[Rfam]
RNA sequence: AUCGCCUUGGGGAUCUUGUUCAAAUGCAGAUUCAGAUUGAGUAGGUCUGGGAUGAGGACUGAGGUUCUGCAUUUCCAACAAGCUCCCAGGUGAUGCUGA
Numbered sequence: 001a002u003c004g005c006c007u008u009g010g011g012g013a014u015c016u017u018g019u020u021c022a023a024a025u026g027c028a029g030a031u032u033c034a035g036a037u038u039g040a041g042u043a044g045g046u047c048u049g050g051g052a053u054g055a056g057g058a059c060u061g062a063g064g065u066u067c068u069g070c071a072u073u074u075c076c077a078a079c080a081a082g083c084u085c086c087c088a089g090g091u092g093a094u095g096c097u098g099a
Base pairs, nucleotide, nucleotide: 003092004091005090010086011085012084015082016081017080018079019078020077022074023073024072026070027069028068029067030066032064033063

mir-544 microRNA precursor family: a 99-nucleotide RNA from Hipposideros armiger. The match comes from Rfam's covariance-model search (70 bits). Pairs were carried over by alignment from the consensus structure, which was predicted with RNAalifold. The literature on the family includes a 2010 paper in Genes Dev by Chiang et al., "Mammalian microRNAs: experimental evaluation of novel and previously annotated genes". The source organism's lineage runs through Eukaryota, Bilateria, Deuterostomia, Chiroptera and Hipposideros.